[Rfam]
Nucleotides: 151
Stems, first nucleotide, its partner, number of pairs: 001151002004148005012140012026127021073087002076084003
Number, partner (000 for none) and nucleotide at each position: 001151a002150a003000a004148c005147c006146g007145c008144c009000c010000c011000c012140u013139a014138a015137g016136u017135a018134u019133u020132g021131a022130u023129u024000u025000u026127u027126u028125u029124u030123g031122c032121a033120g034119u035118u036117u037116u038115g039114g040113c041112c042111c043110c044109u045108c046107a047000g048000a049000c050000c051000a052000a053000u054000u055000u056000u057000g058000a059000c060000c061000a062000a063000g064000u065000c066000a067000a068000u069000g070000c071000a072000c073087a074086c075000g076084u077083g078082g079000c080000g081000u082078c083077c084076a085000u086074g087073u088000g089000a090000c091000u092000u093000u094000g095000u096000c097000a098000a099000a100000a101000u102000u103000g104000g105000u106000u107046u108045g109044a110043g111042g112041g113040g114039c115038c116037a117036a118035a119034a120033c121032u122031g123030c124029a125028a126027a127026a128000u129023a130022g131021u132020c133019a134018a135017u136016a137015c138014u139013u140012a141000g142000g143000g144008g145007g146006c147005g148004g149000u150002u151001u
The record is a 151-nucleotide RNA sequence from Medicago truncatula, which matches "MIR2619 microRNA precursor family" in Rfam. It scores 117 bits against the family's covariance model. The organism belongs to Medicago, within Eukaryota.